A member of the RNA family "Purine riboswitch aptamer" from Lentibacillus populi, 102 nucleotides long.
[Rfam]
RNA sequence: AUAAAAUGAAUAUAACGCGUUCGUAUAUCCUCGAAAAUAUGGUUCGAAAGUUUCUACCAGGGCACCAUAAAUGCCUUGACUAUGAAGGCGGAAUAUCUAUGG
Numbered sequence: 001a002u003a004a005a006a007u008g009a010a011u012a013u014a015a016c017g018c019g020u021u022c023g024u025a026u027a028u029c030c031u032c033g034a035a036a037a038u039a040u041g042g043u044u045c046g047a048a049a050g051u052u053u054c055u056a057c058c059a060g061g062g063c064a065c066c067a068u069a070a071a072u073g074c075c076u077u078g079a080c081u082a083u084g085a086a087g088g089c090g091g092a093a094u095a096u097c098u099a100u101g102g
Base pairs, nucleotide, nucleotide: 018088020086021085022084023083024082025081031047032046033045034044035043058078059077060076061075062074063073064072
Dot-bracket structure: .................(.((((((.....(((((.......)))))..........(((((((.......)))))))..)))))).)..............
The match comes from Rfam's covariance-model search (82 bits).
The base pairs follow the family's consensus structure, which is taken from published work.
Riboswitches are metabolite binding domains within certain messenger RNAs that serve as precision sensors for their corresponding targets. Allosteric rearrangement of mRNA structure is mediated by ligand binding, and this results in modulation of gene expression. A class of riboswitches that selectively recognises guanine and becomes saturated at concentrations as low as 5 nM. In Bacillus subtilis, this mRNA motif is located on at least five separate transcriptional units that together encode 17 genes that are mostly involved in purine transport and purine nucleotide biosynthesis. It has also been shown that some members of this family are specific for adenine instead.